The family of this 207-nucleotide RNA sequence from Snuvovirus hominis is "RAGATH-7 RNA". For this family Rfam cites "New classes of self-cleaving ribozymes revealed by comparative genomics analysis" (Weinberg et al., Nat Chem Biol, 2015). The base pairs follow the family's consensus structure, which is taken from published work. Rfam classes the family as a small RNA. The match comes from Rfam's covariance-model search (158 bits).

[Rfam]
RNA sequence: ACGUUAAAUGUUAUUAUUAUCCUUAUGUACAUAGGAGUAAUACAGGGCAUAUAAUAUAAUCCACGUGGUAAGGGCACAGUUAGGUUCGCUGUGAGUACACCCUUUAGUAGCAACUAACCAAAGCAAGUAUAGAUGGGAAUAAGCUAUUACCUCGAUAGGCUUAAUGAGGUACUUGACAGUCUGACACUAACUGAACAAUAAGUGUCA
Numbered sequence: 001a002c003g004u005u006a007a008a009u010g011u012u013a014u015u016a017u018u019a020u021c022c023u024u025a026u027g028u029a030c031a032u033a034g035g036a037g038u039a040a041u042a043c044a045g046g047g048c049a050u051a052u053a054a055u056a057u058a059a060u061c062c063a064c065g066u067g068g069u070a071a072g073g074g075c076a077c078a079g080u081u082a083g084g085u086u087c088g089c090u091g092u093g094a095g096u097a098c099a100c101c102c103u104u105u106a107g108u109a110g111c112a113a114c115u116a117a118c119c120a121a122a123g124c125a126a127g128u129a130u131a132g133a134u135g136g137g138a139a140u141a142a143g144c145u146a147u148u149a150c151c152u153c154g155a156u157a158g159g160c161u162u163a164a165u166g167a168g169g170u171a172c173u174u175g176a177c178a179g180u181c182u183g184a185c186a187c188u189a190a191c192u193g194a195a196c197a198a199u200a201a202g203u204g205u206c207a
Stems, first nucleotide, its partner, number of pairs: 001057001003055004008050005014044001015042002020036004070104004075093006118136003124175005149170005182207007